The family of this 101-nucleotide sequence from Anaerobacillus isosaccharinicus is "TPP riboswitch aptamer (THI element)". NCBI's taxonomy places the organism under Bacteria, Bacillati, Bacilli, Caryophanales, Anaerobacillus. The literature on the family includes a 2002 paper in J Biol Chem by Rodionov et al., "Comparative genomics of thiamin biosynthesis in procaryotes. New genes and regulatory mechanisms". It scores 74 bits against the family's covariance model.
RNA sequence: UUAUCACUCUAGGGGCGCUGUAAAGCUGAGAGAGACGAAUGUCUUAACCCUUAUAACCUGAUCUAGAUCAUACUAGCGUAGGGAAGAAGUGCGGAUAUAUA
Numbered sequence: 001u002u003a004u005c006a007c008u009c010u011a012g013g014g015g016c017g018c019u020g021u022a023a024a025g026c027u028g029a030g031a032g033a034g035a036c037g038a039a040u041g042u043c044u045u046a047a048c049c050c051u052u053a054u055a056a057c058c059u060g061a062u063c064u065a066g067a068u069c070a071u072a073c074u075a076g077c078g079u080a081g082g083g084a085a086g087a088a089g090u091g092c093g094g095a096u097a098u099a100u101a
Base pairs, nucleotide, nucleotide: 008087009086010085011051012050013049014048017026018025019024033044034043035042036041057082058081059080060079063076064075065074066073